Rfam assigns this 89-nucleotide sequence from Acetivibrio straminisolvens to the family "tRNA". Rfam's curators write: Transfer RNA (tRNA) molecules are approximately 80 nucleotides in length. Their secondary structure includes four short double-helical elements and three loops (D, anti-codon, and T loops). Further hydrogen bonds mediate the characteristic L-shaped molecular structure. tRNAs have two regions of fundamental functional importance: the anti-codon, which is responsible for specific mRNA codon recognition, and the 3' end, to which the tRNAs corresponding amino acid is attached (by aminoacyl-tRNA synthetases). tRNAs cope with the degeneracy of the genetic code in two manners: having more than one tRNA (with a specific anti-codon) for a particular amino acid; and 'wobble' base-pairing, i.e. permitting non-standard base-pairing at the 3rd anti-codon position. The family's RNA type in Rfam is transfer RNA. It scores 60 bits against the family's covariance model.

RNA sequence: GGAGAAGUACCCAAGUAGGUCGAAGGGGACGGUUUGCUAAACCGUUAGGUCGGGUAACCGGCGCGAGGGUUCGAAUCCCUCCUUCUCCG
Numbered sequence: 001g002g003a004g005a006a007g008u009a010c011c012c013a014a015g016u017a018g019g020u021c022g023a024a025g026g027g028g029a030c031g032g033u034u035u036g037c038u039a040a041a042c043c044g045u046u047a048g049g050u051c052g053g054g055u056a057a058c059c060g061g062c063g064c065g066a067g068g069g070u071u072c073g074a075a076u077c078c079c080u081c082c083u084u085c086u087c088c089g
Stems, first nucleotide, its partner, number of pairs: 001088007010027003029045005065081005